[Rfam]
RNA sequence: GGCCCCAAGGGGCUCCGCCAGUCCGCGAGUUUCGCGCACUGGCGCGAUACGC
Numbered sequence: 001g002g003c004c005c006c007a008a009g010g011g012g013c014u015c016c017g018c019c020a021g022u023c024c025g026c027g028a029g030u031u032u033c034g035c036g037c038a039c040u041g042g043c044g045c046g047a048u049a050c051g052c
Stems, first nucleotide, its partner, number of pairs: 016044007025035004
Dot-bracket structure: ...............(((((((..((((...))))..)))))))........

A member of the RNA family "ffh sRNA" from Marivibrio halodurans, 52 nucleotides long. A search with the family's covariance model found it, with a score of 35 bits. Taxonomically the source falls in Marivibrio (Bacteria, Pseudomonadati, Pseudomonadota, Rhodospirillales). The base pairs follow the family's consensus structure, which is taken from published work.